Rfam assigns this 445-nucleotide part of an RNA from Streptomonospora alba to the family "Bacterial large subunit ribosomal RNA". Clan: LSU clan. Taxonomically the source falls in Streptomonospora (Bacteria, Bacillati, Actinomycetota, Nocardiopsidaceae).
RNA sequence: CUCCCCGAAAUGCAUUUAGGUGCAGCGUCGUGUGGUGCUCCCCGGAGGUAGAGCUACUGUUUGGCCGAUGGGCCCGACCAGGUUACUGAGGUCAGAUAAACUCCGAAUGCCGGUGGAGUCAGCGCGGCAGUGAGACUGCGGGGGAUAAGCUCCGUGGUCGAGAGGGAAACAGCCCAGAUCUCCGGCUAAGGCCCCUAAGGGUGCGCUAAGUGGGAAAGGUUGUGGAGUUGCUGAGACAACCAGGAGGUUGGCUUAGAAGCAGCCAUCCUUGAAAGAGUGCGUAAUAGCUCACUGGUCAAGUGAUUCUGCGCCGAUAAUGUAGCGGGGCUGAAGUGCACCGCCGAAGCCGUGGAGCCGGCGUUUUUGAACGCUGGUUGGUAGGGGAGCGUCGUGCGUCCGGUGAAGCUGCGGGGUGACCCGGGGUGGAGGGCGUGCGAGUGAGAAU
Numbered sequence: 001c002u003c004c005c006c007g008a009a010a011u012g013c014a015u016u017u018a019g020g021u022g023c024a025g026c027g028u029c030g031u032g033u034g035g036u037g038c039u040c041c042c043c044g045g046a047g048g049u050a051g052a053g054c055u056a057c058u059g060u061u062u063g064g065c066c067g068a069u070g071g072g073c074c075c076g077a078c079c080a081g082g083u084u085a086c087u088g089a090g091g092u093c094a095g096a097u098a099a100a101c102u103c104c105g106a107a108u109g110c111c112g113g114u115g116g117a118g119u120c121a122g123c124g125c126g127g128c129a130g131u132g133a134g135a136c137u138g139c140g141g142g143g144g145a146u147a148a149g150c151u152c153c154g155u156g157g158u159c160g161a162g163a164g165g166g167a168a169a170c171a172g173c174c175c176a177g178a179u180c181u182c183c184g185g186c187u188a189a190g191g192c193c194c195c196u197a198a199g200g201g202u203g204c205g206c207u208a209a210g211u212g213g214g215a216a217a218g219g220u221u222g223u224g225g226a227g228u229u230g231c232u233g234a235g236a237c238a239a240c241c242a243g244g245a246g247g248u249u250g251g252c253u254u255a256g257a258a259g260c261a262g263c264c265a266u267c268c269u270u271g272a273a274a275g276a277g278u279g280c281g282u283a284a285u286a287g288c289u290c291a292c293u294g295g296u297c298a299a300g301u302g303a304u305u306c307u308g309c310g311c312c313g314a315u316a317a318u319g320u321a322g323c324g325g326g327g328c329u330g331a332a333g334u335g336c337a338c339c340g341c342c343g344a345a346g347c348c349g350u351g352g353a354g355c356c357g358g359c360g361u362u363u364u365u366g367a368a369c370g371c372u373g374g375u376u377g378g379u380a381g382g383g384g385a386g387c388g389u390c391g392u393g394c395g396u397c398c399g400g401u402g403a404a405g406c407u408g409c410g411g412g413g414u415g416a417c418c419c420g421g422g423g424u425g426g427a428g429g430g431c432g433u434g435c436g437a438g439u440g441a442g443a444a445u
Stems, first nucleotide, its partner, number of pairs: 001386006011024005026130001027128007036121001037119005042113004051104001052102002058098003062094004070086001071084004134159010164175003179352002182349001184348003190342003199339001201338006218312003222309010239296005245269003250264003270274001275290001279288002353376008387440001389437010405424003409420004